[Rfam]
RNA: Nuclear RNase P
RNA sequence: GGAGGUAGCAAGCUUAUGUAUACGGGCAAACAUACGAAAAGAUAUCAUUCUUUAAUUCAACCCGUGGGAAGGUCUGAGAAAAGCCGCUAAUGUCUUUGCUGGACAAUCUGUGAAAACGGAGGCAGUGCUACCAGAAAAUCUAACCUCUUGUUUCCUUACCUUUGAAGGAUUUUAUAUUCUGAUGGGUAUUCUGGGGAGACGAGAGGAUUAUUGUAACGGUCUGCGGGCGGAAAUGCUAUGAAGUGCAAUACAUGAGGCUGGUUUUACCAGUAACUCAAUUCAGACUACUCUGUUUCCUCC
Number, nucleotide and partner (000 for none) at each position: 001g300002g299003a298004g297005g000006u000007a000008g293009c292010a291011a000012g000013c256014u255015u254016a253017u252018g251019u250020a000021u000022a065023c064024g063025g062026g061027c000028a000029a000030a000031c000032a000033u000034a000035c000036g000037a000038a053039a052040a051041g050042a049043u000044a000045u000046c000047a000048u000049u042050c041051u040052u039053u038054a000055a000056u000057u000058c000059a000060a000061c026062c025063c024064g023065u022066g000067g000068g000069a000070a000071g000072g000073u000074c283075u282076g281077a280078g279079a000080a000081a000082a000083g000084c227085c226086g000087c000088u000089a000090a000091u105092g104093u103094c102095u101096u000097u000098g000099c000100u000101g095102g094103a093104c092105a091106a000107u120108c119109u118110g117111u116112g000113a000114a000115a000116a111117c110118g109119g108120a107121g000122g224123c223124a222125g221126u000127g220128c219129u218130a000131c000132c000133a000134g000135a000136a000137a000138a000139u000140c000141u000142a209143a208144c000145c000146u000147c000148u000149u000150g000151u000152u000153u000154c000155c000156u000157u000158a000159c000160c000161u000162u000163u000164g000165a000166a000167g000168g000169a000170u000171u000172u000173u000174a000175u000176a000177u000178u000179c000180u000181g000182a000183u000184g000185g000186g000187u000188a000189u000190u000191c000192u000193g000194g000195g000196g000197a000198g000199a000200c000201g000202a000203g000204a000205g000206g000207a000208u143209u142210a000211u000212u000213g000214u000215a000216a000217c000218g129219g128220u127221c125222u124223g123224c122225g000226g085227g084228c000229g000230g000231a000232a000233a000234u000235g000236c000237u000238a000239u000240g000241a000242a000243g000244u000245g000246c000247a000248a000249u000250a019251c018252a017253u016254g015255a014256g013257g271258c270259u269260g268261g267262u000263u000264u000265u000266a000267c261268c260269a259270g258271u257272a000273a000274c000275u000276c000277a000278a000279u078280u077281c076282a075283g074284a000285c000286u000287a000288c000289u000290c000291u010292g009293u008294u000295u000296c000297c004298u003299c002300c001